[Rfam]
RNA: sul1 RNA
Organism: Devosia limi
RNA sequence: AUCGGACCCGGUGCAAAUCCGGGUGGCUCUUCCGGCCGCCAACCCGCCGGACACUC
Dot-bracket structure: .....(((((((....).))))))......((((((.........)))))).....
Numbered sequence: 001a002u003c004g005g006a007c008c009c010g011g012u013g014c015a016a017a018u019c020c021g022g023g024u025g026g027c028u029c030u031u032c033c034g035g036c037c038g039c040c041a042a043c044c045c046g047c048c049g050g051a052c053a054c055u056c
Stems, first nucleotide, its partner, number of pairs: 006024006012017001031051006